[Rfam]
RNA: skipping-rope RNA
RNA sequence: GGAAUUAAAGGACGGAACGGGCAGCCGUCGCCCUUGUUGGAGAUGUGGGAGUGUCGCCCCACUUAAUUCC
Numbered sequence: 001g002g003a004a005u006u007a008a009a010g011g012a013c014g015g016a017a018c019g020g021g022c023a024g025c026c027g028u029c030g031c032c033c034u035u036g037u038u039g040g041a042g043a044u045g046u047g048g049g050a051g052u053g054u055c056g057c058c059c060c061a062c063u064u065a066a067u068u069c070c
Base pairs, nucleotide, nucleotide: 001070002069003068004067005066006065007064008063011029012028013027014026015025020055021054022053023052031040045062046061047060048059049058